A member of the RNA family "Plant signal recognition particle RNA" from Cucurbita maxima, 307 nucleotides long. On this family, see Wild et al., Curr Opin Struct Biol 2002: "Towards the structure of the mammalian signal recognition particle".
RNA sequence: GCCGAGCUUGGUUACGCAAGCUUGUGACCCAUGUGGGGGCGAUAUUGUGAUGGAAUGGUGUAACUUCUCCCGCUAGGCCGGAUUCGAUAUUGACUUGUAUGGCUCGCCCAUUGCAAGCACAGAGUUGAGCCAUGGGGUUAGGGCGAAGGCCCAUGUCUCAUUGGCUUCUAAAGCGGAGGGCAAUGCGUGAGGCUGGUUUCAACAGAGCAACGAUCACCUCCCUCCCUGUGUAGUGCAAGGAUAACAGGCCGUGUUAGUCGGAUCCAAAUUGCCCCGUCGGGUUGGCAUUCAACGAACCAUCAUUUUU
Numbered sequence: 001g002c003c004g005a006g007c008u009u010g011g012u013u014a015c016g017c018a019a020g021c022u023u024g025u026g027a028c029c030c031a032u033g034u035g036g037g038g039g040c041g042a043u044a045u046u047g048u049g050a051u052g053g054a055a056u057g058g059u060g061u062a063a064c065u066u067c068u069c070c071c072g073c074u075a076g077g078c079c080g081g082a083u084u085c086g087a088u089a090u091u092g093a094c095u096u097g098u099a100u101g102g103c104u105c106g107c108c109c110a111u112u113g114c115a116a117g118c119a120c121a122g123a124g125u126u127g128a129g130c131c132a133u134g135g136g137g138u139u140a141g142g143g144c145g146a147a148g149g150c151c152c153a154u155g156u157c158u159c160a161u162u163g164g165c166u167u168c169u170a171a172a173g174c175g176g177a178g179g180g181c182a183a184u185g186c187g188u189g190a191g192g193c194u195g196g197u198u199u200c201a202a203c204a205g206a207g208c209a210a211c212g213a214u215c216a217c218c219u220c221c222c223u224c225c226c227u228g229u230g231u232a233g234u235g236c237a238a239g240g241a242u243a244a245c246a247g248g249c250c251g252u253g254u255u256a257g258u259c260g261g262a263u264c265c266a267a268a269u270u271g272c273c274c275c276g277u278c279g280g281g282u283u284g285g286c287a288u289u290c291a292a293c294g295a296a297c298c299a300u301c302a303u304u305u306u307u
Base pairs, nucleotide, nucleotide: 001040002039003038004023005022006021007020008019009018010017028037029036030035044306047303048302049301050300051299052298053297056294057293059291060290064284067281070280071279072278074276076274077273079271080265081264082263083262084261085260086259087258093254094253099252100251101250102249103248104247106245108240109239111238112237113236114235115234117231118230119229120228121227122226124224127167128166129165130164131163132162133160134159135158136157137156138155141152142151143150144149168173175221176220177219178218179217186212187211188210193205194204195203
Source information:
Rfam links the family to the GO terms signal recognition particle, endoplasmic reticulum targeting and SRP-dependent cotranslational protein targeting to membrane, signal sequence recognition. It scores 205 bits against the family's covariance model. The family's consensus secondary structure is taken from published work. Rfam classes the family as a non-coding RNA gene.